The record is an 87-nucleotide RNA from Sutcliffiella cohnii, which matches "BsrC" in Rfam.
RNA sequence: UAUACCUAAAACAAUGAAAGCCCUACCUCUCUUUCAUCCUUACGGCUCCUUGUCCGUGCCAGUGUGAAUCAGGUUACAAAUUAUAGU
Numbered sequence: 001u002a003u004a005c006c007u008a009a010a011a012c013a014a015u016g017a018a019a020g021c022c023c024u025a026c027c028u029c030u031c032u033u034u035c036a037u038c039c040u041u042a043c044g045g046c047u048c049c050u051u052g053u054c055c056g057u058g059c060c061a062g063u064g065u066g067a068a069u070c071a072g073g074u075u076a077c078a079a080a081u082u083a084u085a086g087u
Base pairs, nucleotide, nucleotide: 034067035066036065039062040061041058042057043056044055045054047052

The family has 29 seed sequences and 572 matches in Rfam 15.1. A search with the family's covariance model found it, with a score of 100 bits. On this family, see Saito et al., Gene 2008: "Novel small RNA-encoding genes in the intergenic regions of Bacillus subtilis". Rfam classes the family as a small RNA. Rfam describes the family as follows. The 301 nucleotide sequence from Kouji Nakamura has been trimmed to a highly conserved ~85 nucleotide long core to form this family.